[Rfam]
RNA: Fluoride riboswitch aptamer (crcB RNA motif)
Organism: Propionigenium maris
Nucleotides: 077
Base pairs, nucleotide, nucleotide: 010025011024012023013022016068017067018066019065020064021063049058050057051056
Number, partner (000 for none) and nucleotide at each position: 001000a002000a003000g004000u005000g006000a007000a008000g009000u010025g011024g012023a013022g014000a015000u016068g017067a018066a019065g020064c021063u022013c023012u024011c025010c026000a027000a028000a029000a030000g031000c032000a033000a034000a035000u036000a037000g038000u039000g040000c041000u042000u043000u044000a045000a046000a047000c048000u049058g050057u051056c052000u053000u054000g055000u056051g057050a058049c059000u060000a061000a062000u063021g064020g065019c066018u067017u068016c069000u070000a071000c072000a073000a074000a075000a076000u077000a